[Rfam]
The family of this 83-nucleotide RNA sequence from Bombyx mori is "mir-2807 microRNA precursor family". It scores 60 bits against the family's covariance model.
RNA sequence: UUAGCUCAUAUUUGUAUGGAAUGGGAUCGUUUGCCUACGUUUGCCGCUAGGGGUGCUGUUCCAACUGCAUACAAAAUUGGCUA
Numbered sequence: 001u002u003a004g005c006u007c008a009u010a011u012u013u014g015u016a017u018g019g020a021a022u023g024g025g026a027u028c029g030u031u032u033g034c035c036u037a038c039g040u041u042u043g044c045c046g047c048u049a050g051g052g053g054u055g056c057u058g059u060u061c062c063a064a065c066u067g068c069a070u071a072c073a074a075a076a077u078u079g080g081c082u083a
Stems, first nucleotide, its partner, number of pairs: 008077002011075006018068001020066001022064001024062003028058002034052003039047002